[Rfam]
RNA sequence: CCAAGGAUUUCGGGAGAAGCUGGCCAGCGCCGGUGCCGAAGGAGCAGCCGCCCCGGCGAACUCUCAGGCAAAAGGACCGUCUUCCAACA
Dot-bracket structure: .....((...(((......((((......)))).(((((..(((..((.......))...))))).))).......)))...)).....
RNA: Glycine riboswitch aptamer